[Rfam]
The family of this 91-nucleotide sequence from Desulfoscipio gibsoniae is "tRNA". The match comes from Rfam's covariance-model search (57 bits). Rfam classes the family as a transfer RNA.
RNA sequence: GGAGAGAUGGCUGAGUUGGUCGAAGGCGCGCGACUGGAAAUCGCGUAGACGGUCUGAACCCGUCUCGAGGGUUCGAAUCCCUCUCUCUCCG
Dot-bracket structure: (((((((..(((............))).(((((.......))))).....................(((((.......)))))))))))).